[Rfam]
Small nucleolar RNA SNORA4: a 140-nucleotide RNA from Ictidomys tridecemlineatus.
Rfam 15.1 lists 290 matches to the family in 136 species.
RNA sequence: AUACCAAGAGUUAAUGUGUUUGGGAAGGUUUUUUUAAUAGCCUUUACCAGAUUGGGCUGUUUGGGAGAAAAAUAAAAGACCACGCUCCACAGUGGGCUAUACCACUUUGUAUAGUUCAUUACUAUUUUGUGGCCUACAUU
Numbered sequence: 001a002u003a004c005c006a007a008g009a010g011u012u013a014a015u016g017u018g019u020u021u022g023g024g025a026a027g028g029u030u031u032u033u034u035u036a037a038u039a040g041c042c043u044u045u046a047c048c049a050g051a052u053u054g055g056g057c058u059g060u061u062u063g064g065g066a067g068a069a070a071a072a073u074a075a076a077a078g079a080c081c082a083c084g085c086u087c088c089a090c091a092g093u094g095g096g097c098u099a100u101a102c103c104a105c106u107u108u109g110u111a112u113a114g115u116u117c118a119u120u121a122c123u124a125u126u127u128u129g130u131g132g133c134c135u136a137c138a139u140u
Stems, first nucleotide, its partner, number of pairs: 004064005012059002015056001017054001023048002026045001027042004077135002080132005091120012
The organism belongs to Ictidomys, within Eukaryota.
The match comes from Rfam's covariance-model search (127 bits).
ACA4 is a member of the H/ACA class of snoRNA that guide the sites of modification of uridines to pseudouridines.
The family's RNA type in Rfam is H/ACA-box small nucleolar RNA.